[Rfam]
RNA sequence: GUCGCAGAGUUCAAAGGAACUUUUAUUGUGAUACGUUAAGAUAAUCGUAUCACAGUAGAAAGUUACCUAGGUCUCUGUUGAU
Number, nucleotide and partner (000 for none) at each position: 001g000002u000003c080004g079005c077006a076007g075008a074009g073010u000011u000012c000013a000014a000015a068016g067017g066018a064019a063020c062021u061022u000023u059024u058025a056026u000027u054028g053029u052030g051031a050032u049033a048034c047035g046036u000037u000038a000039a000040g000041a000042u000043a000044a000045u000046c035047g034048u033049a032050u031051c030052a029053c028054a027055g000056u025057a000058g024059a023060a000061a021062g020063u019064u018065a000066c017067c016068u015069a000070g000071g000072u000073c009074u008075c007076u006077g005078u000079u004080g003081a000082u000

Description:
This 82-nucleotide RNA sequence from Pogonomyrmex barbatus belongs to the Rfam family "mir-2944 microRNA precursor family". The match comes from Rfam's covariance-model search (56 bits). Taxonomically the source falls in Pogonomyrmex (Eukaryota, Hexapoda, Aculeata, Myrmicinae).